[Rfam]
A member of the RNA family "Small nucleolar RNA snoR111" from Digitaria exilis, 129 nucleotides long.
The match comes from Rfam's covariance-model search (48 bits).
A reference for the family is Marker et al. (2002), "Experimental RNomics: identification of 140 candidates for small non-messenger RNAs in the plant Arabidopsis thaliana", Curr Biol.
Rfam classes the family as an H/ACA-box small nucleolar RNA.
The source organism's lineage runs through Eukaryota, Euphyllophyta, Spermatophyta, Panicodae and Digitaria.
Gene Ontology terms of the family: nucleolus and RNA processing.
Rfam 15.1 lists 533 matches to the family in 223 species.
RNA sequence: CUGUUUGGCGGGGGCACGAACACCUUCCGUGCGGCGCCGCCAUAGCAAAGAGGGGAUAGAUCGACGCGUCAAGAAAUCGUUUCAGUUGCCAUGGCUCCAGUAGGCAAUAUGAUUGUUGCUUGACCACAG
Numbered sequence: 001c002u003g004u005u006u007g008g009c010g011g012g013g014g015c016a017c018g019a020a021c022a023c024c025u026u027c028c029g030u031g032c033g034g035c036g037c038c039g040c041c042a043u044a045g046c047a048a049a050g051a052g053g054g055g056a057u058a059g060a061u062c063g064a065c066g067c068g069u070c071a072a073g074a075a076a077u078c079g080u081u082u083c084a085g086u087u088g089c090c091a092u093g094g095c096u097c098c099a100g101u102a103g104g105c106a107a108u109a110u111g112a113u114u115g116u117u118g119c120u121u122g123a124c125c126a127c128a129g
Stems, first nucleotide, its partner, number of pairs: 006042006014032005068124001070122004076113004085108006

Pairs were carried over by alignment from the consensus structure, which was predicted with WAR.